[Rfam]
The family of this 182-nucleotide sequence from Veronia nyctiphanis is "Manganese Mn2+ riboswitch aptamer (yybP-ykoY)". Rfam's curators write: This RNA was originally discovered in E. coli during a large scale screen and was named SraF. The family was later found to exist upstream of related families of protein genes in many bacteria, including the the yybP and ykoK genes in B. subtilis. The specific functions of these proteins are unknown, but this structured RNA element may be involved in their genetic regulation as a riboswitch. The pairing is the family consensus, mapped onto this sequence. The literature on the family includes a 2001 paper in Curr Biol by Argaman et al., "Novel small RNA-encoding genes in the intergenic regions of Escherichia coli". The match comes from Rfam's covariance-model search (58 bits). The organism belongs to Veronia, within Bacteria.
RNA sequence: CCCUUUGGGGAGUAGCCUCUUCUUUUUGACGAAGAUGAUUGUCAACAUAAUUGAAGCUCAAUCUUCAUGGCAAUCAUGACUCACACCCUGUGAGUUUGGCGAGACCAAUGGCAUAUCAACGUGAACCGGGCGGGGCACGAGGGUCUGUCUUUGGUACCUAUAAUUAUCUCGCCUUUGUGAGU
Numbered sequence: 001c002c003c004u005u006u007g008g009g010g011a012g013u014a015g016c017c018u019c020u021u022c023u024u025u026u027u028g029a030c031g032a033a034g035a036u037g038a039u040u041g042u043c044a045a046c047a048u049a050a051u052u053g054a055a056g057c058u059c060a061a062u063c064u065u066c067a068u069g070g071c072a073a074u075c076a077u078g079a080c081u082c083a084c085a086c087c088c089u090g091u092g093a094g095u096u097u098g099g100c101g102a103g104a105c106c107a108a109u110g111g112c113a114u115a116u117c118a119a120c121g122u123g124a125a126c127c128g129g130g131c132g133g134g135g136c137a138c139g140a141g142g143g144u145c146u147g148u149c150u151u152u153g154g155u156a157c158c159u160a161u162a163a164u165u166a167u168c169u170c171g172c173c174u175u176u177g178u179g180a181g182u
Base pairs, nucleotide, nucleotide: 020033021032022031035077036076037075038074039073040072041071042070043069044068052067053066054065055064056063079182080181081180082179083178084177